[Rfam]
RNA: Singlet oxygen resistance RNA X
RNA sequence: AACCAAAGCCGAUGGUGAGCUUUGCUCUAGUCGGUUUUUACCUCCCUGUUGGACUUGGCCGGGCUUUGCCCGGCCUUUUUU
Numbered sequence: 001a002a003c004c005a006a007a008g009c010c011g012a013u014g015g016u017g018a019g020c021u022u023u024g025c026u027c028u029a030g031u032c033g034g035u036u037u038u039u040a041c042c043u044c045c046c047u048g049u050u051g052g053a054c055u056u057g058g059c060c061g062g063g064c065u066u067u068g069c070c071c072g073g074c075c076u077u078u079u080u081u
Base pairs, nucleotide, nucleotide: 001036002035003034004033057075058074059073060072061071062070063069064068